[Rfam]
RNA sequence: AUCGUGAUAUCGGGAGAGACUGACCGCCGCAUGCGGCGACAGCGCCGAAGGAGCAACCGCCCCGGAAACUCUCAGGCAAAAGGACCGGUAUCGCAUU
Numbered sequence: 001a002u003c004g005u006g007a008u009a010u011c012g013g014g015a016g017a018g019a020c021u022g023a024c025c026g027c028c029g030c031a032u033g034c035g036g037c038g039a040c041a042g043c044g045c046c047g048a049a050g051g052a053g054c055a056a057c058c059g060c061c062c063c064g065g066a067a068a069c070u071c072u073c074a075g076g077c078a079a080a081a082g083g084a085c086c087g088g089u090a091u092c093g094c095a096u097u
Stems, first nucleotide, its partner, number of pairs: 006092008020042003044077003047073002051071003057065002
RNA: Glycine riboswitch aptamer
Organism: Pseudoduganella ginsengisoli